[Rfam]
RNA sequence: AAUAAAUCAUAUGACUGGCGGAAGUGGAGUUAACCACAGGGAAUAUGAUUUAGAAAUUUAAGUUAGAAUGUCGACCGCCUGGGCAAUAAAA
Numbered sequence: 001a002a003u004a005a006a007u008c009a010u011a012u013g014a015c016u017g018g019c020g021g022a023a024g025u026g027g028a029g030u031u032a033a034c035c036a037c038a039g040g041g042a043a044u045a046u047g048a049u050u051u052a053g054a055a056a057u058u059u060a061a062g063u064u065a066g067a068a069u070g071u072c073g074a075c076c077g078c079c080u081g082g083g084c085a086a087u088a089a090a091a
Base pairs, nucleotide, nucleotide: 003052004051005050006049007048008047009046010045011044012043015040016039017079018078019077020076021075024037025036026035027034069085070084071083072082
The record is a 91-nucleotide sequence from Clostridium botulinum, which matches "ZMP/ZTP riboswitch aptamer (pfl RNA motif)" in Rfam.
The source organism's lineage runs through Bacteria, Eubacteriales, Clostridium, Clostridium botulinum and Clostridium botulinum F.